[Rfam]
RNA sequence: GUUCGUAUUCUUCCACAGCUUUCUUGAACUGCAUCUUGUUGAGCCGGAUUCGCUCUUCUCUCUCUCUUAAAAGCGCGCUUUUGUUCAUCAUUUUCUUUUGCGGUUCAAUAAAGCUGUGGGAAGAUACACACA
Number, nucleotide and partner (000 for none) at each position: 001g000002u000003u000004c000005g127006u126007a125008u000009u000010c000011u000012u000013c119014c118015a117016c000017a115018g114019c113020u112021u111022u110023c000024u108025u107026g106027a105028a000029c103030u102031g101032c100033a099034u000035c000036u000037u000038g000039u000040u000041g000042a000043g000044c000045c000046g000047g000048a000049u000050u000051c000052g000053c000054u000055c000056u000057u000058c000059u000060c000061u000062c000063u000064c000065u000066c000067u000068u000069a000070a000071a000072a000073g000074c000075g000076c000077g000078c000079u000080u000081u000082u000083g000084u000085u000086c000087a000088u000089c000090a000091u000092u000093u000094u000095c000096u000097u000098u000099u033100g032101c031102g030103g029104u000105u027106c026107a025108a024109u000110a022111a021112a020113g019114c018115u017116g000117u015118g014119g013120g000121a000122a000123g000124a000125u007126a006127c005128a000129c000130a000131c000132a000
Rfam assigns this 132-nucleotide RNA sequence from Cucurbita maxima to the family "MIR396 microRNA precursor family". Pairs were carried over by alignment from the consensus structure, which was predicted with WAR.